[Rfam]
RNA sequence: AGAUGCCAGGGUCGAAAGGUCCAAAAGACGGUUGUGCUUGCACAAUAAGACUUUUGAACUUGAGACCUGCCCCAAUAUGAGGAUAAAAGUUCGACGCAUGUCGAACGAUAUCCGAAUGUGGGGGAGAAUUGCGGGAGUACAACGUACGGAGCAAUUCGAAAGGCAUCG
Numbered sequence: 001a002g003a004u005g006c007c008a009g010g011g012u013c014g015a016a017a018g019g020u021c022c023a024a025a026a027g028a029c030g031g032u033u034g035u036g037c038u039u040g041c042a043c044a045a046u047a048a049g050a051c052u053u054u055u056g057a058a059c060u061u062g063a064g065a066c067c068u069g070c071c072c073c074a075a076u077a078u079g080a081g082g083a084u085a086a087a088a089g090u091u092c093g094a095c096g097c098a099u100g101u102c103g104a105a106c107g108a109u110a111u112c113c114g115a116a117u118g119u120g121g122g123g124g125a126g127a128a129u130u131g132c133g134g135g136a137g138u139a140c141a142a143c144g145u146a147c148g149g150a151g152c153a154a155u156u157c158g159a160a161a162g163g164c165a166u167c168g
Base pairs, nucleotide, nucleotide: 002167003166004165005164006163007162010067011066012065013064016061017060018059020058022056023055024054025053026052027051029049032045033044034043035042036041071123072122073121075119076118077117078116081113082112083111084110089106090105091104092103093102094101095100126157127156128155129154130153131152132151137147138146139145140144
Dot-bracket structure: .((((((..((((..(((.(.((((((.(..(((((....)))))...).)))))).))))..))))...(((.((((..((((....(((((((....)))))))...))))..)))).)))..(((((((....((((...))))...)))))))....)))))).
A member of the RNA family "Clostridiales-1 RNA" from Oscillospiraceae bacterium Marseille-Q3528, 168 nucleotides long. The base pairs follow the family's consensus structure, which is taken from published work.